[Rfam]
RNA sequence: CUCCCCGAAAUGCAUUUAGGUGCAGCGUUGAUUAAUAGUUUUAUAGAGGUAGAGCUACUGAUUGGAUGCGGGGGCUUCACCGCCUACCAAUUCCUGACAAACUCCGAAUGCUAUAAAAUGUUUAUCAGCAGUGAGGGCAUGGGUGCUAAGGUCCAUGUCCGAGAGGGAAAGAACCCAGACCAUCAGCUAAGGUCCCAAAAUAUAUGUUAAGUUGAAAAAACGAGGUUGAACUGCUUAGACAGCUAGGAUGUUGGCUUGGAAGCAGCCAUUCAUUUAAAGAGUGCGUAACAGCUCACUAGUCGAGCGGUUCGGCAUGGAUAAUAAUCGGGCAUAAACAUAUUACCGAAGCUAUGGGAUAGAAAUAUCGGUAGGGGAGCAUUGUAGUGUCGUCGAAGGUGUGUUGUGAGACAUGCUGGAGAAGCUACAAAAGAAAAU
Numbered sequence: 001c002u003c004c005c006c007g008a009a010a011u012g013c014a015u016u017u018a019g020g021u022g023c024a025g026c027g028u029u030g031a032u033u034a035a036u037a038g039u040u041u042u043a044u045a046g047a048g049g050u051a052g053a054g055c056u057a058c059u060g061a062u063u064g065g066a067u068g069c070g071g072g073g074g075c076u077u078c079a080c081c082g083c084c085u086a087c088c089a090a091u092u093c094c095u096g097a098c099a100a101a102c103u104c105c106g107a108a109u110g111c112u113a114u115a116a117a118a119u120g121u122u123u124a125u126c127a128g129c130a131g132u133g134a135g136g137g138c139a140u141g142g143g144u145g146c147u148a149a150g151g152u153c154c155a156u157g158u159c160c161g162a163g164a165g166g167g168a169a170a171g172a173a174c175c176c177a178g179a180c181c182a183u184c185a186g187c188u189a190a191g192g193u194c195c196c197a198a199a200a201u202a203u204a205u206g207u208u209a210a211g212u213u214g215a216a217a218a219a220a221c222g223a224g225g226u227u228g229a230a231c232u233g234c235u236u237a238g239a240c241a242g243c244u245a246g247g248a249u250g251u252u253g254g255c256u257u258g259g260a261a262g263c264a265g266c267c268a269u270u271c272a273u274u275u276a277a278a279g280a281g282u283g284c285g286u287a288a289c290a291g292c293u294c295a296c297u298a299g300u301c302g303a304g305c306g307g308u309u310c311g312g313c314a315u316g317g318a319u320a321a322u323a324a325u326c327g328g329g330c331a332u333a334a335a336c337a338u339a340u341u342a343c344c345g346a347a348g349c350u351a352u353g354g355g356a357u358a359g360a361a362a363u364a365u366c367g368g369u370a371g372g373g374g375a376g377c378a379u380u381g382u383a384g385u386g387u388c389g390u391c392g393a394a395g396g397u398g399u400g401u402u403g404u405g406a407g408a409c410a411u412g413c414u415g416g417a418g419a420a421g422c423u424a425c426a427a428a429a430g431a432a433a434a435u
Stems, first nucleotide, its partner, number of pairs: 001376006011024005026131001027129006037122001038119009052105001053103002059099002064094003070088002072085004135160010165176003180354004185350003191344003200341001202340006221316002225313010242300005248273003253267003274278001279294001283292002355366004377430001379427007387419002395414008

Rfam assigns this 435-nucleotide part of an RNA from Algibacter luteus to the family "Bacterial large subunit ribosomal RNA". The source organism's lineage runs through Bacteria, Pseudomonadati, Flavobacteriia, Flavobacteriales and Algibacter.